[Rfam]
RNA sequence: CCGGAUGCCGAUUUGCGGGUCCGGUUGGACACAGAGGGCGCUGGCUCUCAUCCCGGCGCAUCUCAUGCUCAGAUUGCUCAUUGGAGGAUUUGGAAAUGAGAA
Numbered sequence: 001c002c003g004g005a006u007g008c009c010g011a012u013u014u015g016c017g018g019g020u021c022c023g024g025u026u027g028g029a030c031a032c033a034g035a036g037g038g039c040g041c042u043g044g045c046u047c048u049c050a051u052c053c054c055g056g057c058g059c060a061u062c063u064c065a066u067g068c069u070c071a072g073a074u075u076g077c078u079c080a081u082u083g084g085a086g087g088a089u090u091u092g093g094a095a096a097u098g099a100g101a102a
Stems, first nucleotide, its partner, number of pairs: 001024006008018002036061001038059007062100005069093007077086003